[Rfam]
RNA: mir-181 microRNA precursor family
Organism: Takifugu flavidus
RNA sequence: UACCAGCGGUGAACAUUCAACGCUGUCGGUGAGUUUGACCUGAGCCAAACCAUCGACCGUUGACUGUACCCCGAGGGUC
Numbered sequence: 001u002a003c004c005a006g007c008g009g010u011g012a013a014c015a016u017u018c019a020a021c022g023c024u025g026u027c028g029g030u031g032a033g034u035u036u037g038a039c040c041u042g043a044g045c046c047a048a049a050c051c052a053u054c055g056a057c058c059g060u061u062g063a064c065u066g067u068a069c070c071c072c073g074a075g076g077g078u079c
Stems, first nucleotide, its partner, number of pairs: 002078003007073002014066002017063006025057007033050004